[Rfam]
RNA: sodF sRNA
Organism: Streptomyces calvus
RNA sequence: CCGUCCCGCCCCGUGAUCGUCUUCUCACCGUUCACCCGGCAGACGGAAGAACGAAGCCCCCGCGACUGACGUCACUCGCGGGGGCUUCCG
Numbered sequence: 001c002c003g004u005c006c007c008g009c010c011c012c013g014u015g016a017u018c019g020u021c022u023u024c025u026c027a028c029c030g031u032u033c034a035c036c037c038g039g040c041a042g043a044c045g046g047a048a049g050a051a052c053g054a055a056g057c058c059c060c061c062g063c064g065a066c067u068g069a070c071g072u073c074a075c076u077c078g079c080g081g082g083g084g085c086u087u088c089c090g
Stems, first nucleotide, its partner, number of pairs: 001046003006042001008040003013035004019029001052090002054087012